Description
Rfam assigns this 83-nucleotide RNA sequence from Eragrostis curvula to the family "Small nucleolar RNA U54". U54 is a C/D box small nucleolar RNA, which acts as a methylation guide for 18S ribosomal RNA in plants. Pairs were carried over by alignment from the consensus structure, which was predicted with PFOLD. A search with the family's covariance model found it, with a score of 74 bits. It is annotated as a C/D-box small nucleolar RNA.

[Rfam]
RNA sequence: AGCUCAAUGAUUUCAACCAGUCACUCUGGUUAUAUACGCUAUUCUGAUUGCAGUUGUAGAAAAAAAUAUUAUUUAUGAGAGCA
Numbered sequence: 001a002g003c004u005c006a007a008u009g010a011u012u013u014c015a016a017c018c019a020g021u022c023a024c025u026c027u028g029g030u031u032a033u034a035u036a037c038g039c040u041a042u043u044c045u046g047a048u049u050g051c052a053g054u055u056g057u058a059g060a061a062a063a064a065a066a067u068a069u070u071a072u073u074u075a076u077g078a079g080a081g082c083a
Base pairs, nucleotide, nucleotide: 002082003081004080005079